About this RNA
Rfam assigns this 171-nucleotide sequence from Erwinia sp. Leaf53 to the family "sok antitoxin (CssrC)". It is annotated as an antitoxin RNA. From the family's description: Also identified in Shigella as CssrC. The literature on the family includes a 2007 paper in Mol Microbiol by Kawano et al., "An antisense RNA controls synthesis of an SOS-induced toxin evolved from an antitoxin". The match comes from Rfam's covariance-model search (83 bits).

[Rfam]
RNA sequence: CGGCGCUUGAGGCUUCUGCCUCAGGCUGCUGGCAGCAGUGCCGGUUGGUGUGAGGCAGAAUGCAGAAAAGCCCCGAAGUUAAUCUAUCCCAUUAACCCCGAGGCCCCUGUAUGACCAAACACCAUCAGGAUAGCCUCUUACCUGCCGCAAGGCAAGGAGAAGCCUGCCAUG
Dot-bracket structure: .((.((((...(((((((((((..((((.................))))..))))))))).))....)))))).(..((.(..........).).)..)(((((..((..(((.........)))..))...)))))....((.(.............).)).........